This 115-nucleotide sequence from Rhodococcus sp. SMB37 belongs to the Rfam family "SAM (S-adenosyl methionine) riboswitch aptamer". The family is grouped with related families in Rfam's "SAM clan". It scores 92 bits against the family's covariance model. Its family is annotated with S-adenosylmethionine metabolic process and regulation of gene expression in the Gene Ontology. A reference for the family is Weinberg et al. (2008), "The aptamer core of SAM-IV riboswitches mimics the ligand-binding site of SAM-I riboswitches", RNA.

[Rfam]
RNA sequence: GGUCAUGAGUGCCAGCGCGAAGCCCCGGCUUGCUGGUCGGCAACCCUCCGGCCAGGGUGGGGUGCUCCGGGUGAGGACACGGUCGUCGGCGCACCGCAGACGACAAGCCGGCUCC
Dot-bracket structure: .(((....(.((((((....((......)).)))))))(((..(((.((......))..))).))).........)))...((((((.(((...))).))))))...........
Numbered sequence: 001g002g003u004c005a006u007g008a009g010u011g012c013c014a015g016c017g018c019g020a021a022g023c024c025c026c027g028g029c030u031u032g033c034u035g036g037u038c039g040g041c042a043a044c045c046c047u048c049c050g051g052c053c054a055g056g057g058u059g060g061g062g063u064g065c066u067c068c069g070g071g072u073g074a075g076g077a078c079a080c081g082g083u084c085g086u087c088g089g090c091g092c093a094c095c096g097c098a099g100a101c102g103a104c105a106a107g108c109c110g111g112c113u114c115c
Stems, first nucleotide, its partner, number of pairs: 002078003009038001011037006021030002039066003044062003048057002082104006089097003